SAM riboswitch aptamer (S box leader): a 106-nucleotide RNA sequence from Staphylococcus gallinarum. The organism belongs to Staphylococcus, within Bacteria. Rfam links the family to the GO term regulation of gene expression.
RNA sequence: AACUUAUCUAGAGAAGUUGAGGGAAUUGGCCCGAUGAUACUUCAGCAACAGACGCUAUAGACGUACUGUGCUAAAUCCAACAAGCAAUAGUCUUGAAAGAUAGGUG
Numbered sequence: 001a002a003c004u005u006a007u008c009u010a011g012a013g014a015a016g017u018u019g020a021g022g023g024a025a026u027u028g029g030c031c032c033g034a035u036g037a038u039a040c041u042u043c044a045g046c047a048a049c050a051g052a053c054g055c056u057a058u059a060g061a062c063g064u065a066c067u068g069u070g071c072u073a074a075a076u077c078c079a080a081c082a083a084g085c086a087a088u089a090g091u092c093u094u095g096a097a098a099g100a101u102a103g104g105u106g
Stems, first nucleotide, its partner, number of pairs: 002105007013043005021032003026080004044072004049068002052064003076098001081095004